[Rfam]
RNA sequence: GGUAUUCCUUAUUUGUUUCUAAUGGUUUAUUUGGAGCCUACCUUCCUGUGCUUUAACCCCAGGCUAAAGCACGUGCCCUGGUGAAAACACCGGAAGAUAGGCCCAUCAGUUUAGUUGCCGCGUUUCGUGCUCAA
Numbered sequence: 001g002g003u004a005u006u007c008c009u010u011a012u013u014u015g016u017u018u019c020u021a022a023u024g025g026u027u028u029a030u031u032u033g034g035a036g037c038c039u040a041c042c043u044u045c046c047u048g049u050g051c052u053u054u055a056a057c058c059c060c061a062g063g064c065u066a067a068a069g070c071a072c073g074u075g076c077c078c079u080g081g082u083g084a085a086a087a088c089a090c091c092g093g094a095a096g097a098u099a100g101g102c103c104c105a106u107c108a109g110u111u112u113a114g115u116u117g118c119c120g121c122g123u124u125u126c127g128u129g130c131u132c133a134a
Base pairs, nucleotide, nucleotide: 001119002118003117004116022110023108024107025106034104036102037101038100039099040098042096045093046092048090049089052086053085054084
Shown here is a 134-nucleotide sequence from Yersinia enterocolitica, a member of the family "tp2". The organism belongs to Yersinia enterocolitica subsp. enterocolitica, within Bacteria.